[Rfam]
RNA sequence: GCAUAUGCUCCGGGGUGUUUAUGCGCCAUGCGCACAGGCUGAGAUGGCUUUGCCGAACCCGCGAACUUGACCCGGUUCACACCGGCGGAAGGAGAGCAGCCUGUCCACGC
Dot-bracket structure: .....(((((((((.(((((...............))))......(((...))))..))))....(((...((((......))))...)))..)))))............
A member of the RNA family "TPP riboswitch aptamer (THI element)" from Allobrachymonas denitrificans, 110 nucleotides long.
Lineage of the source: Bacteria > Pseudomonadati > Comamonadaceae > Allobrachymonas > Allobrachymonas denitrificans.